[Rfam]
RNA sequence: GUCACUACAUGAUUUGCUCUGGUUAAACCUUCCAAGCAGCCAGAGUGCUGAUGAUCCGUGAC
Numbered sequence: 001g002u003c004a005c006u007a008c009a010u011g012a013u014u015u016g017c018u019c020u021g022g023u024u025a026a027a028c029c030u031u032c033c034a035a036g037c038a039g040c041c042a043g044a045g046u047g048c049u050g051a052u053g054a055u056c057c058g059u060g061a062c
Stems, first nucleotide, its partner, number of pairs: 001062005015047009029036002

The record is a 62-nucleotide RNA from Pteropus alecto, which matches "Selenocysteine insertion sequence 1" in Rfam.
A search with the family's covariance model found it, with a score of 40 bits.
Lineage of the source: Eukaryota > Craniata > Teleostomi > Yinpterochiroptera > Pteropus.